The record is a 108-nucleotide RNA from Anaerosporomusa subterranea, which matches "Guanidine-I riboswitch aptamer" in Rfam. From the family's description: This family represents a conserved RNA structure found upstream of the ykkC and yxkD genes in Bacillus subtilis and related genes in other bacteria. The function of this family is unclear although it has been suggested that it may function to switch on efflux pumps and detoxification systems in response to harmful environmental molecules. The organism belongs to Anaerosporomusa, within Bacteria.
RNA sequence: UGAAAGUGAAUCUAGGGUUCCGCGGAGUUUUCCGGUCUGGUCCGAGCGAUUCGCAUGGUUUUUGUUUACCCUAAACCAUGACACCGUAGGGAGAAAAGCCCAGACGGA
Numbered sequence: 001u002g003a004a005a006g007u008g009a010a011u012c013u014a015g016g017g018u019u020c021c022g023c024g025g026a027g028u029u030u031u032c033c034g035g036u037c038u039g040g041u042c043c044g045a046g047c048g049a050u051u052c053g054c055a056u057g058g059u060u061u062u063u064g065u066u067u068a069c070c071c072u073a074a075a076c077c078a079u080g081a082c083a084c085c086g087u088a089g090g091g092a093g094a095a096a097a098g099c100c101c102a103g104a105c106g107g108a
Stems, first nucleotide, its partner, number of pairs: 007053006015043002020040002022037001023034004054080008082103001084106001089101003